Annotation: A member of the RNA family "L13-Bacteroidia ribosomal protein leader", 75 nucleotides long. The literature on the family includes a 2020 paper in BMC Microbiol by Eckert and Weinberg, "Discovery of 20 novel ribosomal leader candidates in bacteria and archaea".
[Rfam]
RNA sequence: GGGGAUUUUCUUAGAACCCCAUACGAUACGUGUUAAUAGUGCUGUCUUUGGCCGGGCAGCAUGGUUAGGUCAAGC
Numbered sequence: 001g002g003g004g005a006u007u008u009u010c011u012u013a014g015a016a017c018c019c020c021a022u023a024c025g026a027u028a029c030g031u032g033u034u035a036a037u038a039g040u041g042c043u044g045u046c047u048u049u050g051g052c053c054g055g056g057c058a059g060c061a062u063g064g065u066u067a068g069g070u071c072a073a074g075c
Stems, first nucleotide, its partner, number of pairs: 001020004006015001033068005039062009
Rfam classes the family as a cis-regulatory leader.